[Rfam]
RNA sequence: AUCUGAAAAGGGCAAACUUGUUGAAAAGCAAGGACGCAAAGCUAUGGGCCUAACCGUUUAUAAAAACGAAUGGCUGCCAGGCUGCCAGA
Number, nucleotide and partner (000 for none) at each position: 001a000002u000003c000004u000005g000006a000007a000008a000009a000010g000011g000012g037013c036014a000015a000016a000017c032018u031019u030020g029021u028022u027023g000024a000025a000026a000027a022028g021029c020030a019031a018032g017033g000034a000035c000036g013037c012038a000039a000040a083041g082042c081043u080044a000045u079046g078047g077048g074049c073050c072051u000052a000053a000054c000055c068056g067057u066058u065059u000060a000061u000062a000063a000064a000065a058066a057067c056068g055069a000070a000071u000072g050073g049074c048075u000076g000077c047078c046079a045080g043081g042082c041083u040084g000085c000086c000087a000088g000089a000
Shown here is an 89-nucleotide RNA from Niallia taxi, a member of the family "c-di-GMP-I riboswitch aptamer". Pairs were carried over by alignment from the consensus structure, which is taken from published work. The match comes from Rfam's covariance-model search (85 bits).